Shown here is a 141-nucleotide sequence from Neobacillus rhizophilus, a member of the family "Group II catalytic intron D1-D4-4".
[Rfam]
RNA sequence: UAAUUGGUGAAAGUCCAAUCUGAGUAAGUACCAAGACGCUCAGUAGCUGACAGGCAACUGGUGAAGAAACUCUAAGGUUGAAGCCCUGUGACAAAGUAACUCUCUAGCAGAGUGCGAGCAAACUAACAGGUUGUAACAUUA
Numbered sequence: 001u002a003a004u005u006g007g008u009g010a011a012a013g014u015c016c017a018a019u020c021u022g023a024g025u026a027a028g029u030a031c032c033a034a035g036a037c038g039c040u041c042a043g044u045a046g047c048u049g050a051c052a053g054g055c056a057a058c059u060g061g062u063g064a065a066g067a068a069a070c071u072c073u074a075a076g077g078u079u080g081a082a083g084c085c086c087u088g089u090g091a092c093a094a095a096g097u098a099a100c101u102c103u104c105u106a107g108c109a110g111a112g113u114g115c116g117a118g119c120a121a122a123c124u125a126a127c128a129g130g131u132u133g134u135a136a137c138a139u140u141a
Stems, first nucleotide, its partner, number of pairs: 020043005050089005055080005064071001096115001099113005118134003
Dot-bracket structure: ...................(((((..............)))))......((((((((((....(......)....)))))....)))))......(..(((((.....))))).)..(((...........))).......
The base pairs follow the family's consensus structure. Group II introns are found in rRNA, tRNA and mRNA of organelles in fungi, plants and protists, and also in mRNA in bacteria. On this family, see Bonen and Vogel, Trends Genet 2001: "The ins and outs of group II introns". The source organism's lineage runs through Bacteria, Bacillota, Caryophanales, Bacillaceae and Neobacillus.